[Rfam]
RNA: Flavo-1 RNA
Organism: Flavobacterium johnsoniae
RNA sequence: UUCCAGCCCUGAUGGAAGCGGAAAUCCUUUUGCUUUUUCCUUUAAAAAGCAAAAGAUUGCAGCGUACAGCAGGAACCAAU
Numbered sequence: 001u002u003c004c005a006g007c008c009c010u011g012a013u014g015g016a017a018g019c020g021g022a023a024a025u026c027c028u029u030u031u032g033c034u035u036u037u038u039c040c041u042u043u044a045a046a047a048a049g050c051a052a053a054a055g056a057u058u059g060c061a062g063c064g065u066a067c068a069g070c071a072g073g074a075a076c077c078a079a080u
Stems, first nucleotide, its partner, number of pairs: 009072003013068002018063002023058004029053010